[Rfam]
A member of the RNA family "Mammalian CPEB3 ribozyme" from Alligator mississippiensis, 74 nucleotides long.
Nucleotides: 074
Base pairs, nucleotide, nucleotide: 012041013040014039015038018074019073020072021071022070023069024068025037026036027035047062048061049060050059051058
Number, partner (000 for none) and nucleotide at each position: 001000c002000g003000a004000g005000a006000g007000u008000u009000c010000a011000a012041g013040g014039c015038c016000a017000u018074a019073g020072c021071a022070g023069a024068a025037g026036u027035g028000c029000u030000u031000g032000c033000a034000g035027c036026a037025c038015g039014g040013c041012c042000a043000u044000g045000u046000c047062a048061g049060a050059u051058u052000c053000u054000g055000a056000c057000a058051a059050a060049u061048c062047u063000a064000c065000g066000a067000a068024u069023u070022c071021u072020g073019c074018u
Record summary: It scores 48 bits against the family's covariance model. The family's consensus secondary structure is taken from published work. NCBI's taxonomy places the organism under Eukaryota, Eumetazoa, Craniata, Alligatorinae, Alligator. The mammalian CPEB3 ribozyme is a self cleaving RNA located in the second intron of the CPEB3 gene which belongs to a family of genes regulating messenger RNA polyadenylation.